[Rfam]
RNA sequence: GCCUAGCCCCGAUUGAAGCAAUUGUUUGAGCUCUUUUUUGUUUUUUUCAAACAAAAAAAGCGAGUGCGAAAAGCGGGAAACUGC
Dot-bracket structure: ........(((.((...((..........(((...((((((((.....))))))))..)))....))...)).)))........
A member of the RNA family "Flavo-1 RNA" from Tenacibaculum soleae, 84 nucleotides long. It is annotated as a small RNA. The base pairs follow the family's consensus structure, which is taken from published work. A search with the family's covariance model found it, with a score of 50 bits. NCBI's taxonomy places the organism under Bacteria, Pseudomonadati, Flavobacteriales, Flavobacteriaceae, Tenacibaculum.